This 86-nucleotide RNA from Stutzerimonas degradans belongs to the Rfam family "ivy-DE RNA". By type it is a cis-regulatory element.
RNA sequence: GAACCAGGGGGACGGGUUGCUCUGCAUGGCGGCGUGACCCAGGGGUACAGGGAGUACCUUCGGCAACGGUCCGGGUUCGGCUGGUG
Numbered sequence: 001g002a003a004c005c006a007g008g009g010g011g012a013c014g015g016g017u018u019g020c021u022c023u024g025c026a027u028g029g030c031g032g033c034g035u036g037a038c039c040c041a042g043g044g045g046u047a048c049a050g051g052g053a054g055u056a057c058c059u060u061c062g063g064c065a066a067c068g069g070u071c072c073g074g075g076u077u078c079g080g081c082u083g084g085u086g
Stems, first nucleotide, its partner, number of pairs: 001078005010072004014040005020034001022032004042060007

Source information
It is one of the family's seed sequences. Lineage of the source: Bacteria > Pseudomonadota > Gammaproteobacteria > Pseudomonadales > Stutzerimonas.